[Rfam]
RNA sequence: AUAUGUAAAUAGCAAAACUAUUGAAAAAUAGUGACGCAAAGCUAUAGGGUCUAAUCUCAUAUGAGAAUGACAGCCAGUUGCCAAU
Numbered sequence: 001a002u003a004u005g006u007a008a009a010u011a012g013c014a015a016a017a018c019u020a021u022u023g024a025a026a027a028a029u030a031g032u033g034a035c036g037c038a039a040a041g042c043u044a045u046a047g048g049g050u051c052u053a054a055u056c057u058c059a060u061a062u063g064a065g066a067a068u069g070a071c072a073g074c075c076a077g078u079u080g081c082c083a084a085u
Stems, first nucleotide, its partner, number of pairs: 012037002017032006040079004047075002049071003056065003
Source information
The record is an 85-nucleotide sequence from Coprobacillus cateniformis, which matches "c-di-GMP-I riboswitch aptamer" in Rfam. Lineage of the source: Bacteria > Bacillati > Bacillota > Erysipelotrichia > Coprobacillus. About the family: GEMM was predicted in a large-scale screen for bacterial structured RNA regulatory elements. The match comes from Rfam's covariance-model search (79 bits).